[Rfam]
RNA sequence: CUUCAAGAGACUCAACUGCAAAGCUCCGACUUGGUUGAGCGCCAACCCCAUGUUCAAGGGUGGCUCGGAUGACGAAGCGGUCUAUAUGCGCCGCACCUGCGGCAGACCUGACCGGUAUAGGCAAGAGCACACG
Dot-bracket structure: ((((....(.((((((.....((......))..)))))))(((..(((.........))).))).........))))..(((((((.............................)))))))...........
Shown here is a 133-nucleotide RNA from Rothia santali, a member of the family "SAM (S-adenosyl methionine) riboswitch aptamer". From the family's description: SAM-IV is a mRNA element that regulates gene expression via direct sensing of S-adenosylmethionine (SAM or AdoMet). A search with the family's covariance model found it, with a score of 57 bits.